[Rfam]
RNA sequence: AUUGCAAAUUCAAGGCCAUAGCAGAAGUGCUCAUGGUGUAGUCAUGUCAGGUUCCAAUGAAUCUGUAAAUUCUGCU
Number, nucleotide and partner (000 for none) at each position: 001a000002u000003u000004g000005c000006a000007a000008a000009u000010u000011c000012a000013a000014g043015g042016c041017c000018a000019u000020a076021g075022c074023a073024g072025a071026a070027g039028u038029g037030c000031u000032c000033a000034u000035g000036g000037u029038g028039u027040a000041g016042u015043c014044a000045u000046g000047u000048c065049a064050g063051g062052u061053u060054c059055c000056a000057a000058u000059g054060a053061a052062u051063c050064u049065g048066u000067a000068a000069a000070u026071u025072c024073u023074g022075c021076u020
RNA: Mammalian CPEB3 ribozyme
Organism: Alligator mississippiensis